[Rfam]
RNA sequence: AAAUAUCUUUGGGGCAGGGUGUAAUUCCCGAUCGGCGGUAAAGUCCGCGAGCGCAAGCUGAAUUGGUGUGAUUCCAAUACCGACAGUAUAGUCUGGAUGAGAAAAGAUAGAU
Numbered sequence: 001a002a003a004u005a006u007c008u009u010u011g012g013g014g015c016a017g018g019g020u021g022u023a024a025u026u027c028c029c030g031a032u033c034g035g036c037g038g039u040a041a042a043g044u045c046c047g048c049g050a051g052c053g054c055a056a057g058c059u060g061a062a063u064u065g066g067u068g069u070g071a072u073u074c075c076a077a078u079a080c081c082g083a084c085a086g087u088a089u090a091g092u093c094u095g096g097a098u099g100a101g102a103a104a105a106g107a108u109a110g111a112u
Base pairs, nucleotide, nucleotide: 004109005108006107007106008105009104010103017029018028019027031092032091033082034081035048036047037046038045043080044079051058052057062078063077064076065075066074084095085094086093